[Rfam]
Description
The record is an 86-nucleotide sequence from Gadus morhua, which matches "Small nucleolar RNA SNORD60" in Rfam. Rfam classes the family as a C/D-box small nucleolar RNA. The family's consensus secondary structure was predicted with PFOLD. The organism belongs to Gadus, within Eukaryota. It scores 54 bits against the family's covariance model. A reference for the family is Kiss-Laszlo et al. (1996), "Site-specific ribose methylation of preribosomal RNA: a novel function for small nucleolar RNAs", Cell.

RNA sequence: AGCCCUUGAUGACAAACUCUAUAUUUCUGACACCUCGUAUGAGAGCUAGUAAUAGCUCCUGUGAUUCUGAUUUUCUUCUGAGGCUC
Numbered sequence: 001a002g003c004c005c006u007u008g009a010u011g012a013c014a015a016a017c018u019c020u021a022u023a024u025u026u027c028u029g030a031c032a033c034c035u036c037g038u039a040u041g042a043g044a045g046c047u048a049g050u051a052a053u054a055g056c057u058c059c060u061g062u063g064a065u066u067c068u069g070a071u072u073u074u075c076u077u078c079u080g081a082g083g084c085u086c
Stems, first nucleotide, its partner, number of pairs: 001085004045056004